Source information:
mir-9/mir-79 microRNA precursor family: a 76-nucleotide sequence from Tribolium castaneum. Rfam 15.1 lists 5,647 matches to the family in 934 species. The family's consensus secondary structure was predicted with RNAalifold. On this family, see Lau et al., Science 2001: "An abundant class of tiny RNAs with probable regulatory roles in Caenorhabditis elegans".
RNA sequence: GAUUUUGUUACUUUGGUAAUUUAGCGUUUGUGAUUUUAUUUGAGUCAUAAAGCUAGAUUACCAAAGCAAUGCGGUU
Numbered sequence: 001g002a003u004u005u006u007g008u009u010a011c012u013u014u015g016g017u018a019a020u021u022u023a024g025c026g027u028u029u030g031u032g033a034u035u036u037u038a039u040u041u042g043a044g045u046c047a048u049a050a051a052g053c054u055a056g057a058u059u060a061c062c063a064a065a066g067c068a069a070u071g072c073g074g075u076u
Stems, first nucleotide, its partner, number of pairs: 001076004007070003011066015029049006

The sequence is in the family's curated seed alignment.